[Rfam]
RNA sequence: GGGGACCUUCGGGGCCCUACAACACGCCGGGUAAAUGCCCGGUCUACAUAGGCGGGGCAACCCGCCGUCUGCUAAACGGAAGACAGAAA
Number, nucleotide and partner (000 for none) at each position: 001g018002g017003g016004g015005a000006c014007c013008u012009u000010c000011g000012g008013g007014g006015c004016c003017c002018u001019a000020c000021a000022a000023c000024a000025c000026g066027c000028c064029g063030g062031g061032u060033a000034a000035a000036u000037g000038c000039c000040c000041g000042g000043u000044c000045u000046a000047c000048a000049u000050a000051g000052g000053c000054g000055g000056g000057g000058c000059a000060a032061c031062c030063c029064g028065c000066c026067g000068u000069c000070u000071g000072c000073u000074a000075a000076a000077c000078g000079g000080a000081a000082g000083a000084c000085a000086g000087a000088a000089a000